The family of this 105-nucleotide sequence from Oceanicaulis sp. HTCC2633 is "TPP riboswitch aptamer (THI element)".
[Rfam]
RNA sequence: GUCAGUUCCAAGGGGUGUCCCGUGCGGUGGUCGUACGGGGCUGAGACGUCACCCUCAGGACCGGAUCCGGGUCAUGCCGGCGGCGGGAUGGAGCAGCGCGAUGAC
Numbered sequence: 001g002u003c004a005g006u007u008c009c010a011a012g013g014g015g016u017g018u019c020c021c022g023u024g025c026g027g028u029g030g031u032c033g034u035a036c037g038g039g040g041c042u043g044a045g046a047c048g049u050c051a052c053c054c055u056c057a058g059g060a061c062c063g064g065a066u067c068c069g070g071g072u073c074a075u076g077c078c079g080g081c082g083g084c085g086g087g088a089u090g091g092a093g094c095a096g097c098g099c100g101a102u103g104a105c
Stems, first nucleotide, its partner, number of pairs: 006093005011055004017041010061086003067080004